[Rfam]
RNA sequence: GCCAUCCUUUCCUUGGGGUUGCGCUACUGUCCAAGGAGCACACAGUGAGGGCAGCACUGCUAACACCUCCACAACACACUCCGGUCAACUAGAGCUUUGCUUUAUAUUGGUGAAAUUUUGGGAAA
Numbered sequence: 001g002c003c004a005u006c007c008u009u010u011c012c013u014u015g016g017g018g019u020u021g022c023g024c025u026a027c028u029g030u031c032c033a034a035g036g037a038g039c040a041c042a043c044a045g046u047g048a049g050g051g052c053a054g055c056a057c058u059g060c061u062a063a064c065a066c067c068u069c070c071a072c073a074a075c076a077c078a079c080u081c082c083g084g085u086c087a088a089c090u091a092g093a094g095c096u097u098u099g100c101u102u103u104a105u106a107u108u109g110g111u112g113a114a115a116u117u118u119u120g121g122g123a124a125a
Stems, first nucleotide, its partner, number of pairs: 006018004021060003027054006038046002084111004090104006

This 125-nucleotide sequence from Otolemur garnettii belongs to the Rfam family "U4atac minor spliceosomal RNA".
The family is grouped with related families in Rfam's "U4 clan".
The base pairs follow the family's consensus structure, which is taken from published work.
For this family Rfam cites "Domains of human U4atac snRNA required for U12-dependent splicing in vivo" (Shukla et al., Nucleic Acids Res, 2002).
Lineage of the source: Eukaryota > Eumetazoa > Craniata > Galagidae > Otolemur.
Gene Ontology terms of the family: spliceosomal tri-snRNP complex assembly, mRNA 5'-splice site recognition and pre-mRNA 5'-splice site binding.